[Rfam]
A member of the RNA family "Fluoride riboswitch aptamer (crcB RNA motif)" from Leptolinea tardivitalis, 71 nucleotides long. The organism belongs to Leptolinea, within Bacteria. Its family is annotated with positive regulation of gene expression and response to fluoride in the Gene Ontology.

RNA sequence: AAUCAAUUAAGCGAUGAAGCUCGCUCGGAAAUAAUCAAACUGUCUUUAUGGCUGAUAGCUUCUGCCUUAAA
Numbered sequence: 001a002a003u004c005a006a007u008u009a010a011g012c013g014a015u016g017a018a019g020c021u022c023g024c025u026c027g028g029a030a031a032u033a034a035u036c037a038a039a040c041u042g043u044c045u046u047u048a049u050g051g052c053u054g055a056u057a058g059c060u061u062c063u064g065c066c067u068u069a070a071a
Base pairs, nucleotide, nucleotide: 010025011024012023013022016062017061018060019059020058021057042052043051044050